[Rfam]
RNA sequence: UUGAAUUUAAAUUAAUUUAUGUUUGGAUACACUUACAUAAAAGUGAUUCUCAUUAUAUUAUGUUGUUUGGAUCG
Numbered sequence: 001u002u003g004a005a006u007u008u009a010a011a012u013u014a015a016u017u018u019a020u021g022u023u024u025g026g027a028u029a030c031a032c033u034u035a036c037a038u039a040a041a042a043g044u045g046a047u048u049c050u051c052a053u054u055a056u057a058u059u060a061u062g063u064u065g066u067u068u069g070g071a072u073c074g
Stems, first nucleotide, its partner, number of pairs: 011061002014058001017055001021053002025049004030045005
Dot-bracket structure: ..........((.(..(...((..((((.(((((......)))))))))..)).)..).)).............
The record is a 74-nucleotide RNA sequence from Trifolium medium, which matches "MIR5272 microRNA precursor family" in Rfam. Its family is annotated with RISC complex and miRNA-mediated post-transcriptional gene silencing in the Gene Ontology. Lineage of the source: Eukaryota > Embryophyta > Gunneridae > Fabales > Trifolium.